[Rfam]
RNA sequence: CUACCGAAGUCGAGAGGCUUCGGGACGGGAGCGCAGAAGUCAGCAGAGGCCGUAGUAGCGAUCGAUGGAUCGUGAAGGGC
Numbered sequence: 001c002u003a004c005c006g007a008a009g010u011c012g013a014g015a016g017g018c019u020u021c022g023g024g025a026c027g028g029g030a031g032c033g034c035a036g037a038a039g040u041c042a043g044c045a046g047a048g049g050c051c052g053u054a055g056u057a058g059c060g061a062u063c064g065a066u067g068g069a070u071c072g073u074g075a076a077g078g079g080c
Base pairs, nucleotide, nucleotide: 001027004023005022006021007020008019009018010017011016040047041046049080050079051078058073059072060071061070062069063068
Overview
Rfam assigns this 80-nucleotide RNA to the family "Group II catalytic intron D1-D4-1". The family has 237 seed sequences and 2,508 matches in Rfam 15.1. The literature on the family includes a 2001 paper in Trends Genet by Bonen and Vogel, "The ins and outs of group II introns". From the family's description: Group II introns are found in rRNA, tRNA and mRNA of organelles in fungi, plants and protists, and also in mRNA in bacteria.